[Rfam]
RNA sequence: AUAGUUAAAGCGCUUAAUUCCAUUUUGGAAAUGGGGGACCCAAUUUUUUUUGGGGUGAAUCAUAUCUUCAAUGUUACUAAUAUAAAGGAUGGAGGUAUGUAGGGUUACUCUUUCAACCCGAACCCGACAGCUAACCUCGUAAGCGUAGAAGGAGGAAGAC
Numbered sequence: 001a002u003a004g005u006u007a008a009a010g011c012g013c014u015u016a017a018u019u020c021c022a023u024u025u026u027g028g029a030a031a032u033g034g035g036g037g038a039c040c041c042a043a044u045u046u047u048u049u050u051u052g053g054g055g056u057g058a059a060u061c062a063u064a065u066c067u068u069c070a071a072u073g074u075u076a077c078u079a080a081u082a083u084a085a086a087g088g089a090u091g092g093a094g095g096u097a098u099g100u101a102g103g104g105u106u107a108c109u110c111u112u113u114c115a116a117c118c119c120g121a122a123c124c125c126g127a128c129a130g131c132u133a134a135c136c137u138c139g140u141a142a143g144c145g146u147a148g149a150a151g152g153a154g155g156a157a158g159a160c
Stems, first nucleotide, its partner, number of pairs: 011145004018030003031140006041052002053125003061099010102119004
RNA: c-di-AMP riboswitch aptamer (ydaO/yuaA leader)
Organism: Selenihalanaerobacter shriftii